A member of the RNA family "Ribosomal protein L20 leader" from Neobacillus thermocopriae, 134 nucleotides long. This family is a putative r-protein leader autoregulatory structure found in B. subtilis and other low-GC Gram-positive bacteria. It is located in the 5' untranslated regions of mRNAs encoding initiation factor 3 followed by ribosomal proteins L35 and L20 (infC-rpmI-rplT). A Rho-independent transcription terminator structure that is probably involved in regulation is included at the 3' end. NCBI's taxonomy places the organism under Bacteria, Bacillati, Bacilli, Bacillaceae, Neobacillus. It scores 85 bits against the family's covariance model.
RNA sequence: UGGGAAAAGAAGAAGCACCCGCUUCUCACCUGAUUUGACGCAGUAUGCAGUUGGCAGGUUUUUUGUGAACUUAUUGUUUUGUAUAACUAUGUUCGUAAAGUGUGGGUGUUUUUCAUCCGCACUUUUUUAUUUGC
Numbered sequence: 001u002g003g004g005a006a007a008a009g010a011a012g013a014a015g016c017a018c019c020c021g022c023u024u025c026u027c028a029c030c031u032g033a034u035u036u037g038a039c040g041c042a043g044u045a046u047g048c049a050g051u052u053g054g055c056a057g058g059u060u061u062u063u064u065g066u067g068a069a070c071u072u073a074u075u076g077u078u079u080u081g082u083a084u085a086a087c088u089a090u091g092u093u094c095g096u097a098a099a100g101u102g103u104g105g106g107u108g109u110u111u112u113u114c115a116u117c118c119g120c121a122c123u124u125u126u127u128u129a130u131u132u133g134c
Stems, first nucleotide, its partner, number of pairs: 011026006028059003037052003040048002101121008